This 64-nucleotide RNA from Photobacterium proteolyticum belongs to the Rfam family "Fluoride riboswitch aptamer (crcB RNA motif)". The base pairs follow the family's consensus structure, which is taken from published work. NCBI's taxonomy places the organism under Bacteria, Pseudomonadati, Pseudomonadota, Gammaproteobacteria, Photobacterium. A search with the family's covariance model found it, with a score of 57 bits.
RNA sequence: UUAGUAACGGGUGAUGGAGUUCCACCUUUAACCGCUCGACUGAGAUGAUGACUCCUGCUGUAGU
Numbered sequence: 001u002u003a004g005u006a007a008c009g010g011g012u013g014a015u016g017g018a019g020u021u022c023c024a025c026c027u028u029u030a031a032c033c034g035c036u037c038g039a040c041u042g043a044g045a046u047g048a049u050g051a052c053u054c055c056u057g058c059u060g061u062a063g064u
Base pairs, nucleotide, nucleotide: 010026011025012024013023016055017054018053019052020051021050035044036043037042